[Rfam]
RNA sequence: AGCCUUCUGUAUCCGUACUGAGAUUUCGUCACACACCAAACCACAAGGGCUGAUGAGACUUCCAAGAUAAUUACUUCA
Dot-bracket structure: .(...(...((((..(...(((.(((((((.....................))))))))))..).))))...)...).
A member of the RNA family "mir-3492 microRNA precursor family" from Schistosoma margrebowiei, 78 nucleotides long. NCBI's taxonomy places the organism under Eukaryota, Bilateria, Rhabditophora, Schistosomatidae, Schistosoma. The match comes from Rfam's covariance-model search (58 bits). Rfam 15.1 lists 21,496 matches to the family in 13 species.